[Rfam]
RNA sequence: CGGCUGAACUCUGGAGAGCGGCCGCGGCACCAUGCCGGCGGCCCACCGAAGGGGCAGGCGGAGCAUCAUCCGCUAUCUCUCAGGUACCAAGGACAGAGGGGCGCGA
Numbered sequence: 001c002g003g004c005u006g007a008a009c010u011c012u013g014g015a016g017a018g019c020g021g022c023c024g025c026g027g028c029a030c031c032a033u034g035c036c037g038g039c040g041g042c043c044c045a046c047c048g049a050a051g052g053g054g055c056a057g058g059c060g061g062a063g064c065a066u067c068a069u070c071c072g073c074u075a076u077c078u079c080u081c082a083g084g085u086a087c088c089a090a091g092g093a094c095a096g097a098g099g100g101g102c103g104c105g106a
Stems, first nucleotide, its partner, number of pairs: 009098005020043006045085003048081002052079003058073005
RNA: Glycine riboswitch aptamer